[Rfam]
RNA sequence: UUUUCCAAUUCGCUGAGUUCCAUUCAUGGGAACGGGGGAACCACUGUAAGCUCAAAAGGCGUUUCGCUGCUUGAGUAAACAGAGUGAGUAACAGGGGUGAAUCCAAUGACGAUAAAUGCAAGUUUACGUCUAGGUAGGGCGACUCUCACGUCCGAAUCCGUCAGCUAACCUCGUAAGCGUAAGAGAGGUAACGA
Numbered sequence: 001u002u003u004u005c006c007a008a009u010u011c012g013c014u015g016a017g018u019u020c021c022a023u024u025c026a027u028g029g030g031a032a033c034g035g036g037g038g039a040a041c042c043a044c045u046g047u048a049a050g051c052u053c054a055a056a057a058g059g060c061g062u063u064u065c066g067c068u069g070c071u072u073g074a075g076u077a078a079a080c081a082g083a084g085u086g087a088g089u090a091a092c093a094g095g096g097g098u099g100a101a102u103c104c105a106a107u108g109a110c111g112a113u114a115a116a117u118g119c120a121a122g123u124u125u126a127c128g129u130c131u132a133g134g135u136a137g138g139g140c141g142a143c144u145c146u147c148a149c150g151u152c153c154g155a156a157u158c159c160g161u162c163a164g165c166u167a168a169c170c171u172c173g174u175a176a177g178c179g180u181a182a183g184a185g186a187g188g189u190a191a192c193g194a
Base pairs, nucleotide, nucleotide: 011179012178013177014176018031019030020029032174033173034172035171036170037169042094095159096158097157103134104133106131137153138152139151140150
c-di-AMP riboswitch aptamer (ydaO/yuaA leader): a 194-nucleotide RNA sequence from Paenibacillus sp. N3.4. A search with the family's covariance model found it, with a score of 85 bits. The pairing is the family consensus, mapped onto this sequence. Its family is annotated with regulation of gene expression and cyclic-di-AMP binding in the Gene Ontology.